The family of this 74-nucleotide RNA from Strongylocentrotus purpuratus is "mir-252 microRNA precursor family". A reference for the family is Li et al. (2009), "Direct sequencing and expression analysis of a large number of miRNAs in Aedes aegypti and a multi-species survey of novel mosquito miRNAs", BMC Genomics.
[Rfam]
RNA sequence: UUGCCGAUCUAAGUAGUAGUGCCGCAGGUACUGAUUUUUAAGUGAUACCUGUACACGGCUACUUACAUUGGCAA
Number, nucleotide and partner (000 for none) at each position: 001u074002u073003g072004c071005c070006g069007a068008u000009c000010u065011a064012a063013g062014u061015a060016g059017u058018a000019g056020u000021g000022c000023c000024g052025c051026a050027g049028g048029u047030a046031c000032u000033g000034a000035u000036u000037u000038u000039u000040a000041a000042g000043u000044g000045a000046u030047a029048c028049c027050u026051g025052u024053a000054c000055a000056c019057g000058g017059c016060u015061a014062c013063u012064u011065a010066c000067a000068u007069u006070g005071g004072c003073a002074a001
It is one of the family's seed sequences.